The family of this 86-nucleotide RNA sequence from Phyllostomus discolor is "Small nucleolar RNA SNORD35".
NCBI's taxonomy places the organism under Eukaryota, Deuterostomia, Tetrapoda, Amniota, Phyllostomus.
Its Rfam clan is "SNORD35 clan".
The family's consensus secondary structure was predicted with PFOLD.
Rfam 15.1 lists 1,842 matches to the family in 634 species.
U35 is a C/D box snoRNA located in intron 6 of ribosomal protein L13A and intron 3 of ribosomal protein S11 in humans and at homologous positions in mouse and chicken ribosomal protein genes.
Gene Ontology terms of the family: RNA processing and nucleolus.
RNA sequence: AGCAGAUGAUGGCUUUUCCUCAUGAUGGUCUGUGGAAGCCACUGUGGGCAGUGCCAAUGAUGCCAAUGGCUUAGCUAUGCUCAGAG
Number, nucleotide and partner (000 for none) at each position: 001a081002g080003c079004a078005g000006a000007u000008g000009a000010u000011g000012g000013c000014u000015u000016u000017u000018c000019c000020u000021c000022a000023u000024g000025a000026u000027g000028g000029u000030c000031u000032g000033u000034g000035g000036a000037a000038g000039c000040c000041a000042c000043u000044g000045u000046g000047g000048g000049c000050a000051g000052u000053g000054c000055c000056a000057a000058u000059g000060a000061u000062g000063c000064c000065a000066a000067u000068g000069g000070c000071u000072u000073a000074g000075c000076u000077a000078u004079g003080c002081u001082c000083a000084g000085a000086g000